[Rfam]
RNA sequence: UCAUCCCUGGGUGGGGAUUUGUUGCAUUACUUGUGUUCUAUAUAAAGUAUUGCACUUGUCCCGGCCUGUGGAAGA
Numbered sequence: 001u002c003a004u005c006c007c008u009g010g011g012u013g014g015g016g017a018u019u020u021g022u023u024g025c026a027u028u029a030c031u032u033g034u035g036u037u038c039u040a041u042a043u044a045a046a047g048u049a050u051u052g053c054a055c056u057u058g059u060c061c062c063g064g065c066c067u068g069u070g071g072a073a074g075a
Base pairs, nucleotide, nucleotide: 002074004072008068009067010066011065012064014062015061016060017059018058021055022054024053025052026051028049029048030047031046032045
A member of the RNA family "mir-92 microRNA precursor family", 75 nucleotides long. The family is grouped with related families in Rfam's "mir-92 microRNA precursor clan". Its family is annotated with miRNA-mediated post-transcriptional gene silencing and RISC complex in the Gene Ontology. Rfam's curators put it in the seed alignment. Pairs were carried over by alignment from the consensus structure, which was predicted with PFOLD.